[Rfam]
RNA: BsrF
RNA sequence: GCGAUGAGCUGAAUUGUGUAAGUCGGGUAACAUGUCUCCUUGAGACACACACGAAUGUGGCGUGUGGUUAUUCCGCCUCAAUACGCAAAAGACAUCUUCUCAGGAAGAUGUC
Numbered sequence: 001g002c003g004a005u006g007a008g009c010u011g012a013a014u015u016g017u018g019u020a021a022g023u024c025g026g027g028u029a030a031c032a033u034g035u036c037u038c039c040u041u042g043a044g045a046c047a048c049a050c051a052c053g054a055a056u057g058u059g060g061c062g063u064g065u066g067g068u069u070a071u072u073c074c075g076c077c078u079c080a081a082u083a084c085g086c087a088a089a090a091g092a093c094a095u096c097u098u099c100u101c102a103g104g105a106a107g108a109u110g111u112c
Base pairs, nucleotide, nucleotide: 014081015080016079018077024075025074026073027071028070029069030068031067035042048066049065051063052062053061091112092111093110094109095108096107097106098105099104